[Rfam]
RNA sequence: GGCAGAGGAAGCCCGGUCCCCGUGGGUUCGCUCCCGGCGUUUCGCGUCGGCGACGCGCCCAUGACGGAAAGUCCCCCCACCCUCCGGGCAGGUGACCGGGCGCAAGCCCGGAGCGGGAGACCGCUGGCACUGGAACAGAAACGAGACCGCUUCCGCCGAGCGAUGAGGCGCGAGGGCCGCCGACGGCGGCCCUCGGCGCUUGCGGCCCUGCCGCAAGCGCGCGAACCGACCCGCAAGGGAAGGGAGUUAACCCGCCGAGCGCGCGUGGUCGUUAGACCGCGAGGAGACGCGGAAGAACGGAUGGAACGGCGAAUCCUCACCGGUGCAAGCCCGUCGCACUUGGUAGCCCGGAGACGCGACGGGUGCUCAGCCGAAUGCCGGGUGAAAACAGAAGGGGGCUUACUACCCUCAGCC
Numbered sequence: 001g002g003c004a005g006a007g008g009a010a011g012c013c014c015g016g017u018c019c020c021c022g023u024g025g026g027u028u029c030g031c032u033c034c035c036g037g038c039g040u041u042u043c044g045c046g047u048c049g050g051c052g053a054c055g056c057g058c059c060c061a062u063g064a065c066g067g068a069a070a071g072u073c074c075c076c077c078c079a080c081c082c083u084c085c086g087g088g089c090a091g092g093u094g095a096c097c098g099g100g101c102g103c104a105a106g107c108c109c110g111g112a113g114c115g116g117g118a119g120a121c122c123g124c125u126g127g128c129a130c131u132g133g134a135a136c137a138g139a140a141a142c143g144a145g146a147c148c149g150c151u152u153c154c155g156c157c158g159a160g161c162g163a164u165g166a167g168g169c170g171c172g173a174g175g176g177c178c179g180c181c182g183a184c185g186g187c188g189g190c191c192c193u194c195g196g197c198g199c200u201u202g203c204g205g206c207c208c209u210g211c212c213g214c215a216a217g218c219g220c221g222c223g224a225a226c227c228g229a230c231c232c233g234c235a236a237g238g239g240a241a242g243g244g245a246g247u248u249a250a251c252c253c254g255c256c257g258a259g260c261g262c263g264c265g266u267g268g269u270c271g272u273u274a275g276a277c278c279g280c281g282a283g284g285a286g287a288c289g290c291g292g293a294a295g296a297a298c299g300g301a302u303g304g305a306a307c308g309g310c311g312a313a314u315c316c317u318c319a320c321c322g323g324u325g326c327a328a329g330c331c332c333g334u335c336g337c338a339c340u341u342g343g344u345a346g347c348c349c350g351g352a353g354a355c356g357c358g359a360c361g362g363g364u365g366c367u368c369a370g371c372c373g374a375a376u377g378c379c380g381g382g383u384g385a386a387a388a389c390a391g392a393a394g395g396g397g398g399c400u401u402a403c404u405a406c407c408c409u410c411a412g413c414c
Base pairs, nucleotide, nucleotide: 001414002413003412005410006409007408008407010404011403012382013381014380015379016378017377021063022062023061024060025059026058027057069401070400071399073398074397075396076395077394078325079324080323081322083352084351085350086349087348088347091321092320093319094318095317096111097110098109099108100107112125113124114123115122116121126316127315131312133310147300148299149298150295151294152293153292154291155290156289168280169279329364330363331362332361333360334359335358336357337356
A member of the RNA family "Archaeal RNase P" from Natronomonas sp. CBA1123, 414 nucleotides long. Rfam's curators write: Ribonuclease P (RNase P) is a ubiquitous endoribonuclease, found in archaea, bacteria and eukarya as well as chloroplasts and mitochondria. On this family, see Frank and Pace, Annu Rev Biochem 1998: "Ribonuclease P: unity and diversity in a tRNA processing ribozyme". Lineage of the source: Archaea > Methanobacteriati > Methanobacteriota > Halobacteria > Natronomonas.